[Rfam]
RNA sequence: CAGGCUCCGGUUCACCCCAGCACCAGCCACGGGGACCCGGCGGCC
Numbered sequence: 001c002a003g004g005c006u007c008c009g010g011u012u013c014a015c016c017c018c019a020g021c022a023c024c025a026g027c028c029a030c031g032g033g034g035a036c037c038c039g040g041c042g043g044c045c
Base pairs, nucleotide, nucleotide: 003045004044005043007040008039009038010037015034016033017032018031020027021026
Dot-bracket structure: ..(((.((((....((((.((....))...))))..))))..)))
Source information:
The family of this 45-nucleotide RNA from Kutzneria kofuensis is "L31-Actinobacteria ribosomal protein leader". The match comes from Rfam's covariance-model search (48 bits). Taxonomically the source falls in Kutzneria (Bacteria, Bacillati, Actinomycetota, Actinomycetes).